[Rfam]
Source information
The record is a 411-nucleotide sequence from Clostridium homopropionicum, which matches "Bacterial RNase P class A" in Rfam. The organism belongs to Clostridium homopropionicum, within Bacteria. Rfam describes the family as follows. Ribonuclease P (RNase P) is a ubiquitous endoribonuclease, found in archaea, bacteria and eukarya as well as chloroplasts and mitochondria. Its best characterised activity is the generation of mature 5'-ends of tRNAs by cleaving the 5'-leader elements of precursor-tRNAs. Cellular RNase Ps are ribonucleoproteins. RNA from bacterial RNase Ps retains its catalytic activity in the absence of the protein subunit, i.e. it is a ribozyme. It is annotated as a ribozyme.
RNA sequence: CGAGUAAGCCAGAUGGUCGCUGCUGCAUAAAAGCAGGAGAGGAAAGUCCGAGCUCCAUAGGGCAGGGUGCUGGGUAACACCCAGUGAAGGCAACUUCAAGGAAAGUGCAACAGAGAUAUACCGCCUAAGUUUAUAGGAAUACAUUCUAACAAGUUAGAAUGCAUAAGUUCCACAAGCCAAAUCAUAGAUUUGGAGUGUCACUUAGGUAAGGGUGGAAAGGCGAGGUAAGAGCUCACCAGCGCACUGGCGACUGUGCGGCUAUGUAAACCCCAUCUGGAGCAAGAUCGAAUAGGAAGACGUAAGGGGCUGCCCGUCCCGUCUUCGGGUAAGAUCGCUUGAGUCUAUUGGUAACAAUAGACCUAGAUAGAUGACCGUCUAAUACAGAACUCGGCUUAUAGGUUUAGUCGCAUA
Dot-bracket structure: (((.((((((((((((((.((.((((......)))).))....[[[.[[[[[((((...[[[[.((((((((((.....)))))(((((....)))).)((...(((((...........((((((((((.....................................................................))))))))..)).......((.(((.......))).)).((((((.(....).))))).)..)))..)))))))))))))...((((......((((((....(((((.]]]])))))))))))......))))......((((((((....))))))))..........)))))))..........]]]]]]]].).)))))).)))....